[Rfam]
RNA sequence: GCCCAUCGGGGCUGCGGAUACCUGC
Numbered sequence: 001g002c003c004c005a006u007c008g009g010g011g012c013u014g015c016g017g018a019u020a021c022c023u024g025c
Stems, first nucleotide, its partner, number of pairs: 001012004015024003
XIST RNA A repeat: a 25-nucleotide RNA sequence from Chinchilla lanigera. It scores 34 bits against the family's covariance model. On this family, see Duszczyk et al., RNA 2011: "The Xist RNA A-repeat comprises a novel AUCG tetraloop fold and a platform for multimerization".